[Rfam]
Shown here is a 93-nucleotide RNA from Xylanibacillus composti, a member of the family "c-di-GMP-I riboswitch aptamer". A reference for the family is Weinberg et al. (2007), "Identification of 22 candidate structured RNAs in bacteria using the CMfinder comparative genomics pipeline", Nucleic Acids Res.
RNA sequence: CUUCGAUCAAGGCAAAGCUACGGAAACGUAGUGACGCAAAGCUACAGGGGCUACCGCAGCGUCAUCAUGCUGCCAUGCCAGCCAGCUGCCGUU
Dot-bracket structure: ...........((...((((((....))))))...))..((((...(((((....(((((((....)))))))...)))..))))))......

Annotation
The match comes from Rfam's covariance-model search (73 bits). NCBI's taxonomy places the organism under Bacteria, Bacillati, Caryophanales, Paenibacillaceae, Xylanibacillus.